This 48-nucleotide RNA sequence belongs to the Rfam family "raiA-hairpin RNA". The family's consensus secondary structure is taken from published work. It scores 66 bits against the family's covariance model.
RNA sequence: CACCGAGUCCGAGGUUCCGGAGGUGACCGGAACCAGGUGCACAAGGGA
Numbered sequence: 001c002a003c004c005g006a007g008u009c010c011g012a013g014g015u016u017c018c019g020g021a022g023g024u025g026a027c028c029g030g031a032a033c034c035a036g037g038u039g040c041a042c043a044a045g046g047g048a
Stems, first nucleotide, its partner, number of pairs: 013034008